[Rfam]
Nucleotides: 062
Stems, first nucleotide, its partner, number of pairs: 034059009044049001
Number, partner (000 for none) and nucleotide at each position: 001000c002000a003000g004000u005000g006000c007000u008000a009000c010000c011000a012000c013000u014000c015000c016000u017000u018000u019000a020000g021000a022000a023000u024000u025000u026000g027000u028000c029000u030000a031000g032000c033000a034059g035058g036057u037056u038055u039054u040053u041052u042051g043000a044049c045000c046000a047000u048000u049044g050000c051042c052041a053040g054039a055038a056037g057036g058035c059034c060000c061000c062000c
U7 small nuclear RNA: a 62-nucleotide RNA sequence from Sciurus vulgaris. Rfam 15.1 lists 10,439 matches to the family in 569 species. A search with the family's covariance model found it, with a score of 51 bits. NCBI's taxonomy places the organism under Eukaryota, Euteleostomi, Theria, Euarchontoglires, Sciurus.